Rfam assigns this 171-nucleotide RNA sequence from Trichonephila clavata to the family "Wolbachia sRNA 46". On this family, see Mayoral et al., Proc Natl Acad Sci U S A 2014: "Wolbachia small noncoding RNAs and their role in cross-kingdom communications".
[Rfam]
RNA sequence: UUUGCCUUGAGUAUAAAGGUGUCAUUCCAGUGCUUGACACUGGAAUCCAGGAAUUUUGAUUGUAAAUUAGGUAUUGGUUUUAAGUUAAAAUAAACAUUUGUAAUGAGGUUAUAUGAAAAACUGGAUCCCAGUGUCUGGGCACUGGGAUGACAUCCUCUUGGUAGACCCAAA
Numbered sequence: 001u002u003u004g005c006c007u008u009g010a011g012u013a014u015a016a017a018g019g020u021g022u023c024a025u026u027c028c029a030g031u032g033c034u035u036g037a038c039a040c041u042g043g044a045a046u047c048c049a050g051g052a053a054u055u056u057u058g059a060u061u062g063u064a065a066a067u068u069a070g071g072u073a074u075u076g077g078u079u080u081u082a083a084g085u086u087a088a089a090a091u092a093a094a095c096a097u098u099u100g101u102a103a104u105g106a107g108g109u110u111a112u113a114u115g116a117a118a119a120a121c122u123g124g125a126u127c128c129c130a131g132u133g134u135c136u137g138g139g140c141a142c143u144g145g146g147a148u149g150a151c152a153u154c155c156u157c158u159u160g161g162u163a164g165a166c167c168c169a170a171a
Stems, first nucleotide, its partner, number of pairs: 011166002014163002020152016036135008045126006
It is annotated as a small RNA. The pairing is the family consensus, mapped onto this sequence. The organism belongs to Trichonephila, within Eukaryota.